[Rfam]
RNA sequence: GGUUUGCCAUGAUGAGAUGCAUGUUCAGUCCGUGUUUCAGCUGAUGACCCUGAUUAAACACAUGCUCUGAGCAGACU
Numbered sequence: 001g002g003u004u005u006g007c008c009a010u011g012a013u014g015a016g017a018u019g020c021a022u023g024u025u026c027a028g029u030c031c032g033u034g035u036u037u038c039a040g041c042u043g044a045u046g047a048c049c050c051u052g053a054u055u056a057a058a059c060a061c062a063u064g065c066u067c068u069g070a071g072c073a074g075a076c077u
Stems, first nucleotide, its partner, number of pairs: 001077007
The record is a 77-nucleotide RNA sequence from Ochotona princeps, which matches "Small nucleolar RNA SNORD126" in Rfam. Taxonomically the source falls in Ochotona (Eukaryota, Bilateria, Euarchontoglires, Ochotonidae). On this family, see Yang et al., Nucleic Acids Res 2006: "snoSeeker: an advanced computational package for screening of guide and orphan snoRNA genes in the human genome". Rfam links the family to the GO terms nucleolus and RNA processing. Rfam 15.1 lists 215 matches to the family in 152 species. It is annotated as a C/D-box small nucleolar RNA. The family's consensus secondary structure was predicted with WAR.